A member of the RNA family "Potassium channel RNA editing signal" from Helobdella robusta, 114 nucleotides long. Pairs were carried over by alignment from the consensus structure, which is taken from published work. NCBI's taxonomy places the organism under Eukaryota, Eumetazoa, Protostomia, Glossiphoniidae, Helobdella. On this family, see Bhalla et al., Nat Struct Mol Biol 2004: "Control of human potassium channel inactivation by editing of a small mRNA hairpin". It scores 74 bits against the family's covariance model. Rfam classes the family as a cis-regulatory element. This family represents a group of sequences related to the human potassium channel Kv1.1 hairpin element which directs the efficient modification of an adenosine to inosine by an adenosine deaminase acting on RNA (ADAR). The ADAR modification causes an isoleucine/valine recoding event which lies in the ion-conducting pore of the potassium channel.
[Rfam]
RNA sequence: GUUGGUUACGGAGAUAUGUGUCCAUCUACGGUAUGGGGCAAGGUAGUAGGGGCCGCCUGUUGCGUUUGUGGCGUCCUCGUGGUCGCCCUCCCCAUCCCCAUCAUUGUCAACAAC
Numbered sequence: 001g002u003u004g005g006u007u008a009c010g011g012a013g014a015u016a017u018g019u020g021u022c023c024a025u026c027u028a029c030g031g032u033a034u035g036g037g038g039c040a041a042g043g044u045a046g047u048a049g050g051g052g053c054c055g056c057c058u059g060u061u062g063c064g065u066u067u068g069u070g071g072c073g074u075c076c077u078c079g080u081g082g083u084c085g086c087c088c089u090c091c092c093c094a095u096c097c098c099c100a101u102c103a104u105u106g107u108c109a110a111c112a113a114c
Stems, first nucleotide, its partner, number of pairs: 001114002004111001008107004013102003018097001020095002037077002040074001049063001051061001